[Rfam]
RNA sequence: ACUUUGGAGAGCCAUACAAAUCGUAGUAGCUUAUUAGGCAAGGCGAGGCUUUAUGAAGAAGGAA
Numbered sequence: 001a002c003u004u005u006g007g008a009g010a011g012c013c014a015u016a017c018a019a020a021u022c023g024u025a026g027u028a029g030c031u032u033a034u035u036a037g038g039c040a041a042g043g044c045g046a047g048g049c050u051u052u053a054u055g056a057a058g059a060a061g062g063a064a
Base pairs, nucleotide, nucleotide: 002061003060004059005058009051010050011049012048013047021046022045023044029039030038031037
A member of the RNA family "RAGATH-18 RNA" from Clostridium perfringens, 64 nucleotides long. Rfam describes the family as follows. Actinobacteria, Firmicutes, Fusobacteria, Thermotogae (1 example). Rfam classes the family as a small RNA. Pairs were carried over by alignment from the consensus structure, which is taken from published work.